[Rfam]
RNA sequence: AGGGCCUCAUCUCGUGUCUCCGCCAUCAGGGCGACUGACCAGUAGUAAUACAGGCGCUUGGCCUAGAUGAGGAGAAGGA
Dot-bracket structure: ....((((((((...(((..((((.....))))...)))..(((....)))((((.....)))))))))))).......
The record is a 79-nucleotide sequence, which matches "RAGATH-10 RNA" in Rfam. A reference for the family is Weinberg et al. (2015), "New classes of self-cleaving ribozymes revealed by comparative genomics analysis", Nat Chem Biol. It is one of the family's seed sequences. The family's RNA type in Rfam is small RNA.